The family of this 54-nucleotide RNA from Dictyostelium purpureum is "Class I RNA from Dictyostelium".
The family's consensus secondary structure is taken from published work.
Lineage of the source: Eukaryota > Evosea > Eumycetozoa > Dictyostelia > Dictyostelium.
Dictyostelium Class I RNA was first reported for Aspegren et al. 2004 in Dictyostelium discoideum. Sucgang et al. 2011 identify putative homologs of Class I RNA in D. discoideum and D. purpureum.
RNA sequence: GAAUUCCUUACAGCAAUUGACAUUUUCCCUCCCAUAGAAAAAAUCCGAAUUCUG
Numbered sequence: 001g002a003a004u005u006c007c008u009u010a011c012a013g014c015a016a017u018u019g020a021c022a023u024u025u026u027c028c029c030u031c032c033c034a035u036a037g038a039a040a041a042a043a044u045c046c047g048a049a050u051u052c053u054g
Stems, first nucleotide, its partner, number of pairs: 001052006